[Rfam]
The record is a 173-nucleotide RNA sequence from Gordonia amarae, which matches "c-di-AMP riboswitch aptamer (ydaO/yuaA leader)" in Rfam.
RNA sequence: UGAAGGUCACCGCUUAGUCAUCCAACCGGAUGAACCGGGGACCCACCGGUUUCGGACAUCGCCAGCGAUGGCCGAAUUGGGGUGAAUCGUCACCGUCCCACCGGACGAGACGUAGGGCAAUUUCUUCCGCCCGAACCCGACAGCUAACUCGGUAGGCGGUUCAGGGAGAAGUA
Numbered sequence: 001u002g003a004a005g006g007u008c009a010c011c012g013c014u015u016a017g018u019c020a021u022c023c024a025a026c027c028g029g030a031u032g033a034a035c036c037g038g039g040g041a042c043c044c045a046c047c048g049g050u051u052u053c054g055g056a057c058a059u060c061g062c063c064a065g066c067g068a069u070g071g072c073c074g075a076a077u078u079g080g081g082g083u084g085a086a087u088c089g090u091c092a093c094c095g096u097c098c099c100a101c102c103g104g105a106c107g108a109g110a111c112g113u114a115g116g117g118c119a120a121u122u123u124c125u126u127c128c129g130c131c132c133g134a135a136c137c138c139g140a141c142a143g144c145u146a147a148c149u150c151g152g153u154a155g156g157c158g159g160u161u162c163a164g165g166g167a168g169a170a171g172u173a
Stems, first nucleotide, its partner, number of pairs: 011158004018033005034153006044079002080138003088112004115132004